A member of the RNA family "Small Cajal body specific RNA 16" from Pogona vitticeps, 187 nucleotides long. The family's RNA type in Rfam is small Cajal body RNA. scaRNAs are a specific class of small nuclear RNAs which localise to the Cajal bodies and guide the modification of RNA polymerase II transcribed spliceosomal RNAs U1, U2, U4, U5 and U12. ACA47 belongs to the H/ACA box class of guide RNAs as it has the predicted hairpin-hinge-hairpin-tail structure, the conserved H/ACA-box motifs and is found associated with GAR1. ACA47 is predicted to guide the pseudouridylation of residue U5 of the U1 spliceosomal snRNA. Its family is annotated with nucleolus and RNA processing in the Gene Ontology. The literature on the family includes a 2002 paper in EMBO J by Darzacq et al., "Cajal body-specific small nuclear RNAs: a novel class of 2'-O-methylation and pseudouridylation guide RNAs". A search with the family's covariance model found it, with a score of 139 bits.
Nucleotides: 187
Base pairs, nucleotide, nucleotide: 003075004074005073006072008070009069010068015064016063017062018061019059020058022056024055025054026049027048028047029046030045032043033042034041093114094113095112096110097109099107100106123181124180125179126178127177128176129175130174132172133171138166139165140164142162143161144160145159148157150155
Number, partner (000 for none) and nucleotide at each position: 001000a002000u003075g004074g005073g006072c007000u008070g009069g010068g011000a012000a013000a014000a015064g016063g017062u018061u019059g020058c021000u022056g023000u024055g025054u026049g027048g028047c029046u030045g031000g032043g033042c034041c035000u036000g037000c038000u039000a040000u041034g042033g043032u044000c045030c046029a047028g048027c049026c050000u051000u052000g053000u054025a055024c056022c057000u058020g059019u060000u061018a062017g063016c064015c065000u066000g067000a068010c069009c070008u071000u072006g073005c074004c075003c076000u077000a078000g079000a080000a081000g082000a083000a084000a085000a086000g087000a088000a089000a090000a091000u092000a093114c094113u095112u096110g097109g098000c099107a100106u101000a102000c103000u104000c105000u106100g107099u108000u109097c110096u111000u112095g113094g114093g115000u116000c117000u118000g119000c120000c121000u122000c123181g124180u125179g126178c127177a128176g129175u130174a131000g132172c133171a134000g135000g136000u137000g138166u139165g140164a141000g142162c143161a144160u145159u146000c147000u148157g149000c150155c151000a152000g153000c154000a155150g156000c157148u158000u159145g160144a161143u162142g163000g164140u165139c166138a167000u168000g169000u170000a171133u172132g173000a174130u175129a176128c177127u178126g179125c180124a181123u182000a183000c184000a185000a186000a187000u